RNA sequence: AUAAUGAUACUCCCGUCUUGAACGCGUCACUGCAUUGGGCGGUUGUGUGAGAACCACACAGAGGGUGAGAGUCCCGUGG
Numbered sequence: 001a002u003a004a005u006g007a008u009a010c011u012c013c014c015g016u017c018u019u020g021a022a023c024g025c026g027u028c029a030c031u032g033c034a035u036u037g038g039g040c041g042g043u044u045g046u047g048u049g050a051g052a053a054c055c056a057c058a059c060a061g062a063g064g065g066u067g068a069g070a071g072u073c074c075c076g077u078g079g
Stems, first nucleotide, its partner, number of pairs: 012076001013042006043061003047057003063075003

Source information
A member of the RNA family "pemK RNA", 79 nucleotides long.